Overview
The record is a 78-nucleotide RNA sequence from Schistosoma margrebowiei, which matches "mir-3492 microRNA precursor family" in Rfam. It scores 59 bits against the family's covariance model. Gene Ontology terms of the family: miRNA-mediated post-transcriptional gene silencing and RISC complex. The family has 2 seed sequences and 21,496 matches in Rfam 15.1. Taxonomically the source falls in Schistosoma (Eukaryota, Lophotrochozoa, Neodermata, Trematoda).
RNA sequence: ACCCUUCUGUAUCCAUUCUGAGGUUUCGUCACACGUCAGACCACAAGGGCUGAUGAGACUCUCAAAAUAAAUGAAGCG
Numbered sequence: 001a002c003c004c005u006u007c008u009g010u011a012u013c014c015a016u017u018c019u020g021a022g023g024u025u026u027c028g029u030c031a032c033a034c035g036u037c038a039g040a041c042c043a044c045a046a047g048g049g050c051u052g053a054u055g056a057g058a059c060u061c062u063c064a065a066a067a068u069a070a071a072u073g074a075a076g077c078g
Base pairs, nucleotide, nucleotide: 003076005074006073008071010069011068012067016064020061021060022059024058025057026056027055028054029053030052